[Rfam]
RNA sequence: ACGUGCUCCGGGGUCGGUGCAAUUCCGAGCCGGCGGUGACAGUCCGCGACCCGUGAGGCCCGCCAGGGCCGAGCGGUUGACCUGGUGGAACUCCGGGACCGACGGUGACAGUCCGGAUGGGAGGAGACACGU
Numbered sequence: 001a002c003g004u005g006c007u008c009c010g011g012g013g014u015c016g017g018u019g020c021a022a023u024u025c026c027g028a029g030c031c032g033g034c035g036g037u038g039a040c041a042g043u044c045c046g047c048g049a050c051c052c053g054u055g056a057g058g059c060c061c062g063c064c065a066g067g068g069c070c071g072a073g074c075g076g077u078u079g080a081c082c083u084g085g086u087g088g089a090a091c092u093c094c095g096g097g098a099c100c101g102a103c104g105g106u107g108a109c110a111g112u113c114c115g116g117a118u119g120g121g122a123g124g125a126g127a128c129a130c131g132u
Base pairs, nucleotide, nucleotide: 003130004129005128006126007125008124009123015027016026017025029112030111031101032100033047034046035045036044042099043098051076052075053074054073081097082096083095084094085093103115104114105113
Shown here is a 132-nucleotide sequence from Cellulomonas sp. SLBN-39, a member of the family "FMN riboswitch aptamer (RFN element)". Its family is annotated with FMN binding in the Gene Ontology. Lineage of the source: Bacteria > Actinomycetota > Actinomycetes > Micrococcales > Cellulomonas.